Shown here is a 33-nucleotide sequence from Aeribacillus alveayuensis, a member of the family "L31-Firmicutes ribosomal protein leader". The sequence is in the family's curated seed alignment. The literature on the family includes a 2020 paper in BMC Microbiol by Eckert and Weinberg, "Discovery of 20 novel ribosomal leader candidates in bacteria and archaea". Clan: Ribosomal Protein L31 Leader clan.
RNA sequence: CUCUGUUUCGAAAUGAUUCAGGGCGAAAAGGAG
Number, nucleotide and partner (000 for none) at each position: 001c023002u022003c021004u020005g019006u000007u000008u016009c015010g014011a000012a000013a000014u010015g009016a008017u000018u000019c005020a004021g003022g002023g001024c000025g000026a000027a000028a000029a000030g000031g000032a000033g000